[Rfam]
This 59-nucleotide sequence from Furfurilactobacillus siliginis belongs to the Rfam family "L17 ribosomal protein downstream element".
By type it is a cis-regulatory element.
Pairs were carried over by alignment from the consensus structure, which is taken from published work.
The match comes from Rfam's covariance-model search (38 bits).
NCBI's taxonomy places the organism under Bacteria, Bacillati, Lactobacillales, Lactobacillaceae, Furfurilactobacillus.
RNA sequence: AAAGCGUUAUGAUGAUGGCGAUCGCGUUCGCCCAGUCUAGCUUGAAUGAGCAAUUGCUC
Numbered sequence: 001a002a003a004g005c006g007u008u009a010u011g012a013u014g015a016u017g018g019c020g021a022u023c024g025c026g027u028u029c030g031c032c033c034a035g036u037c038u039a040g041c042u043u044g045a046a047u048g049a050g051c052a053a054u055u056g057c058u059c
Stems, first nucleotide, its partner, number of pairs: 002043004011037003017032005048059004